[Rfam]
RNA sequence: UGAGUAAGACAGGUGGCCGCAGCUGUGAUACCGAAAGGUUGCAGAUGAGGAAAGUCCGGGCUUCACAGGGCAGGAUGCCAGAUAACGUCUGGCGGAGGCGACUCCAGGGAUAGUGCAACAGAAAUAUACCGCAUGGAAACAUGUAAGGGUGGAAGGGCAGUGUAAGAGACUACCGCCUGGCUGGUAACAGCCGGGGCAUAUGUAAACCCCAUCCGAAGCAAGACCGAACAGGAAACAUAAGGCGGCCCGUCUGUUUCCGGGUAGGUCGCUUGAGUCUGCCGGCGACGGCAGACCUAGAUAGAUGGCCAUCCAACGACAUAACCCGGCUUAUCGUCUUGCUCAAACU
Numbered sequence: 001u002g003a004g005u006a007a008g009a010c011a012g013g014u015g016g017c018c019g020c021a022g023c024u025g026u027g028a029u030a031c032c033g034a035a036a037g038g039u040u041g042c043a044g045a046u047g048a049g050g051a052a053a054g055u056c057c058g059g060g061c062u063u064c065a066c067a068g069g070g071c072a073g074g075a076u077g078c079c080a081g082a083u084a085a086c087g088u089c090u091g092g093c094g095g096a097g098g099c100g101a102c103u104c105c106a107g108g109g110a111u112a113g114u115g116c117a118a119c120a121g122a123a124a125u126a127u128a129c130c131g132c133a134u135g136g137a138a139a140c141a142u143g144u145a146a147g148g149g150u151g152g153a154a155g156g157g158c159a160g161u162g163u164a165a166g167a168g169a170c171u172a173c174c175g176c177c178u179g180g181c182u183g184g185u186a187a188c189a190g191c192c193g194g195g196g197c198a199u200a201u202g203u204a205a206a207c208c209c210c211a212u213c214c215g216a217a218g219c220a221a222g223a224c225c226g227a228a229c230a231g232g233a234a235a236c237a238u239a240a241g242g243c244g245g246c247c248c249g250u251c252u253g254u255u256u257c258c259g260g261g262u263a264g265g266u267c268g269c270u271u272g273a274g275u276c277u278g279c280c281g282g283c284g285a286c287g288g289c290a291g292a293c294c295u296a297g298a299u300a301g302a303u304g305g306c307c308a309u310c311c312a313a314c315g316a317c318a319u320a321a322c323c324c325g326g327c328u329u330a331u332c333g334u335c336u337u338g339c340u341c342a343a344a345c346u
Base pairs, nucleotide, nucleotide: 001342002341003340004339005338006337007336008335009334010333011331012310013309014308015307016306017305018304020047021046023044024043025042026041027040028039052329053328054327056326057325058324059323060322061218062217063216064215068248069247070246071245073214074213075212076211077210078092079091080090081089082088093107094105095104096103097102108209109208113207114206115203116202117201129148130147131144132143133142134141135140156174157173159171160170161169175197176195177194178193179192180191181190182189183188222267223266224265225264231258232257233256234255235254236253240252241251242250243249274293275292276291277290278289279288280287281286
Record summary
A member of the RNA family "Bacterial RNase P class A" from Clostridium sp. chh4-2, 346 nucleotides long. The family's RNA type in Rfam is ribozyme. Lineage of the source: Bacteria > Bacillota > Clostridia > Clostridiaceae > Clostridium. Its family is annotated with tRNA processing, dimeric ribonuclease P complex and ribonuclease P activity in the Gene Ontology.